[Rfam]
RNA sequence: UGGUAACACGAACCGGUGCUAACGGGUCCCUGCCCCGACAGCACCUGUCAGUAGCCGUUGGGCUGACCCUUUAGCACCAGUUCGUGUUAAGAA
Number, nucleotide and partner (000 for none) at each position: 001u000002g000003g000004u089005a088006a087007c086008a085009c084010g083011a082012a081013c080014c000015g078016g077017u076018g075019c074020u073021a072022a071023c000024g069025g068026g067027u066028c000029c000030c065031u000032g000033c000034c062035c061036c060037g000038a058039c057040a000041g000042c000043a000044c000045c051046u050047g000048u000049c000050a046051g045052u000053a000054g000055c000056c000057g039058u038059u000060g036061g035062g034063c000064u000065g030066a027067c026068c025069c024070u000071u022072u021073a020074g019075c018076a017077c016078c015079a000080g013081u012082u011083c010084g009085u008086g007087u006088u005089a004090a000091g000092a000093a000
About this RNA: The family of this 93-nucleotide sequence from Sorghum bicolor is "MIR5387 microRNA precursor family". A search with the family's covariance model found it, with a score of 72 bits. The family's consensus secondary structure was predicted with RNAalifold. Its family is annotated with miRNA-mediated post-transcriptional gene silencing and RISC complex in the Gene Ontology.